Shown here is a 110-nucleotide sequence from Trifolium medium, a member of the family "MIR5225 microRNA precursor family". The match comes from Rfam's covariance-model search (80 bits).
RNA sequence: UUCAGUGACUUCGGUCGCAGGAGAGAUGACAUCUUCUGCUACCAAUUGAAUAUUUGUAUAGUCAAUUUAACGAUAGUUGUCAUCUUUCCUCGGCUGAAGCUUCUCAACUA
Numbered sequence: 001u002u003c004a005g006u007g008a009c010u011u012c013g014g015u016c017g018c019a020g021g022a023g024a025g026a027u028g029a030c031a032u033c034u035u036c037u038g039c040u041a042c043c044a045a046u047u048g049a050a051u052a053u054u055u056g057u058a059u060a061g062u063c064a065a066u067u068u069a070a071c072g073a074u075a076g077u078u079g080u081c082a083u084c085u086u087u088c089c090u091c092g093g094c095u096g097a098a099g100c101u102u103c104u105c106a107a108c109u110a
Stems, first nucleotide, its partner, number of pairs: 005102001007100001009099004014094004019090003023086007